[Rfam]
RNA sequence: UGAGUUUUUCAUGCUUGUCUCUCGGGGUAACACGACGAGUUCCUGGUAACUCUUUAUAAAUAUUUACACCCUGGGUAAAGUCCCCGGGCCUAUGAUAGAAAGUAUCAAGGCGUAAAAAGUGUAUAUAGAGAGGGAUUUAUAUUUCUCUUUACAUAUAUUCGCCUAUAUUCCGCGGAAAUUCGCCUUGCGUUGCGACGAAGAAGGAACGAAGUCCGCAAGGAUUUCUCUCCCGAGUCCUUUGCGUUUGGUUGUCUGCGGAAAUGUGCCAAAUAUAUCAGAUAUGGACGAGUUGGCAAUCAUCAAAUGCCACGUGUAUUUGGUGUUUGUCUACACGGAAUGGGGCUUACGUUGAGAAAUUU
Numbered sequence: 001u002g003a004g005u006u007u008u009u010c011a012u013g014c015u016u017g018u019c020u021c022u023c024g025g026g027g028u029a030a031c032a033c034g035a036c037g038a039g040u041u042c043c044u045g046g047u048a049a050c051u052c053u054u055u056a057u058a059a060a061u062a063u064u065u066a067c068a069c070c071c072u073g074g075g076u077a078a079a080g081u082c083c084c085c086g087g088g089c090c091u092a093u094g095a096u097a098g099a100a101a102g103u104a105u106c107a108a109g110g111c112g113u114a115a116a117a118a119g120u121g122u123a124u125a126u127a128g129a130g131a132g133g134g135a136u137u138u139a140u141a142u143u144u145c146u147c148u149u150u151a152c153a154u155a156u157a158u159u160c161g162c163c164u165a166u167a168u169u170c171c172g173c174g175g176a177a178a179u180u181c182g183c184c185u186u187g188c189g190u191u192g193c194g195a196c197g198a199a200g201a202a203g204g205a206a207c208g209a210a211g212u213c214c215g216c217a218a219g220g221a222u223u224u225c226u227c228u229c230c231c232g233a234g235u236c237c238u239u240u241g242c243g244u245u246u247g248g249u250u251g252u253c254u255g256c257g258g259a260a261a262u263g264u265g266c267c268a269a270a271u272a273u274a275u276c277a278g279a280u281a282u283g284g285a286c287g288a289g290u291u292g293g294c295a296a297u298c299a300u301c302a303a304a305u306g307c308c309a310c311g312u313g314u315a316u317u318u319g320g321u322g323u324u325u326g327u328c329u330a331c332a333c334g335g336a337a338u339g340g341g342g343c344u345u346a347c348g349u350u351g352a353g354a355a356a357u358u359u
Stems, first nucleotide, its partner, number of pairs: 002359010014289006022074007037052005078345003082342004094106004158176005179259005187252002192249002195246001204237001206235002219230003292328005

This 359-nucleotide RNA sequence from Drosophila willistoni belongs to the Rfam family "RNase MRP". The base pairs follow the family's consensus structure, which is taken from published work.